Rfam assigns this 357-nucleotide RNA sequence from Bacillus coahuilensis to the family "transfer-messenger RNA".
Clan: tRNA clan.
Rfam's curators write: Bacterial tmRNA, also known as 10Sa RNA or SsrA, is named for its dual tRNA and mRNA-like properties.
The family's consensus secondary structure is taken from published work.
It scores 197 bits against the family's covariance model.
Gene Ontology term of the family: RNA catabolic process.
Rfam classes the family as a non-coding RNA gene.
RNA sequence: GGGGACGUUACGGAUUCGACAGGGAUGACUAGGGCUUAAGUUGCGAGUCGGAGGGAUCGUCUUCGUCAUCAACGUCAAGAAUUAUAACUGGCAAACAAAACAAUUUCGCUUUAGCAGCGUAAGCUAGCUAGCGGCUCCGCCUUUCCAUCGCCCAUGUGGAAUUGACCGGGGCUCAACUUUAGUGGGAUACGCCGGAGUUCACCGUCUGAGGACAAAGGAAGAGAAGAACCAGACUAGCUGUUCGGACGCCGGUCGAUAGGCAGAUGAUACAGCGAAACUCUAAUAUAUCGACUACACUCGUAGAAGCUUAAGUUGAGGUGUUUCUGGACGUGGGUUCGACUCCCACCGUCUCCACCA
Number, nucleotide and partner (000 for none) at each position: 001g353002g352003g351004g350005a349006c348007g347008u000009u000010a000011c000012g000013g000014a000015u000016u000017c000018g000019a000020c326021a325022g324023g323024g322025a321026u320027g319028a000029c317030u000031a000032g000033g314034g313035c312036u311037u310038a309039a308040g307041u306042u305043g000044c300045g299046a298047g297048u296049c065050g064051g063052a062053g061054g000055g076056a075057u074058c000059g000060u071061c053062u052063u051064c050065g049066u000067c000068a000069u000070c000071a060072a000073c000074g057075u056076c055077a000078a000079g000080a000081a000082u000083u000084a000085u000086a000087a000088c000089u000090g000091g000092c000093a000094a000095a000096c000097a000098a000099a000100a000101c000102a000103a000104u000105u000106u000107c000108g000109c000110u000111u131112u130113a129114g128115c127116a000117g125118c000119g000120u000121a000122a000123g000124c000125u117126a000127g115128c114129u113130a112131g111132c000133g000134g172135c171136u170137c169138c168139g167140c164141c000142u000143u161144u000145c159146c158147a157148u156149c000150g000151c186152c185153c184154a183155u182156g148157u147158g146159g145160a000161a143162u000163u000164g140165a000166c000167c139168g138169g137170g136171g135172c134173u000174c000175a000176a000177c000178u000179u000180u000181a000182g155183u154184g153185g152186g151187a000188u000189a000190c000191g000192c218193c217194g000195g000196a000197g213198u212199u211200c210201a000202c000203c000204g235205u000206c000207u232208g000209a000210g200211g199212a198213c197214a000215a000216a000217g193218g192219a000220a000221g000222a000223g000224a000225a000226g000227a000228a000229c000230c000231a000232g207233a000234c000235u204236a000237g273238c272239u271240g270241u269242u267243c266244g265245g000246a000247c000248g261249c260250c259251g000252g292253u291254c290255g289256a286257u285258a284259g250260g249261c248262a000263g000264a000265u244266g243267a242268u000269a241270c240271a239272g238273c237274g000275a000276a000277a000278c000279u000280c000281u000282a000283a000284u258285a257286u256287a000288u000289c255290g254291a253292c252293u000294a000295c000296a048297c047298u046299c045300g044301u000302a000303g000304a000305a042306g041307c040308u039309u038310a037311a036312g035313u034314u033315g000316a000317g029318g000319u027320g026321u025322u024323u023324c022325u021326g020327g000328a000329c000330g346331u345332g344333g343334g342335u000336u000337c000338g000339a000340c000341u000342c334343c333344c332345a331346c330347c007348g006349u005350c004351u003352c002353c001354a000355c000356c000357a000